Description:
The family of this 108-nucleotide RNA from Pseudoflavitalea sp. G-6-1-2 is "SAM riboswitch aptamer (S box leader)".
RNA sequence: CACUUAUCCAGAACAGACUGAGGGAAGGGCCCUGCGACGUCUUGGCAACCUGUACUUACCCAUGUAUAAGGUGCUAACUCCUCCUCCUGAAAAGGAGAAAGAUGAGAU
Numbered sequence: 001c002a003c004u005u006a007u008c009c010a011g012a013a014c015a016g017a018c019u020g021a022g023g024g025a026a027g028g029g030c031c032c033u034g035c036g037a038c039g040u041c042u043u044g045g046c047a048a049c050c051u052g053u054a055c056u057u058a059c060c061c062a063u064g065u066a067u068a069a070g071g072u073g074c075u076a077a078c079u080c081c082u083c084c085u086c087c088u089g090a091a092a093a094g095g096a097g098a099a100a101g102a103u104g105a106g107a108u
Base pairs, nucleotide, nucleotide: 003106004105005104006103007102008101013043015042016041017040018039022032023031024030027082028081029080044075045074046073047072049071050070052067053066054065055064079100084097085096086095087094088093

Overview: The source organism's lineage runs through Bacteria, Bacteroidota, Chitinophagia, Chitinophagales and Pseudoflavitalea.